[Rfam]
RNA sequence: CCGUCCGUAUGACGGCGCCACCUGAAACGUCGACAGAUGGGGGUGGUGCCUGAGGUUCCCGGGACGG
Dot-bracket structure: (((((........((((((((((....(((......))).))))))))))............)))))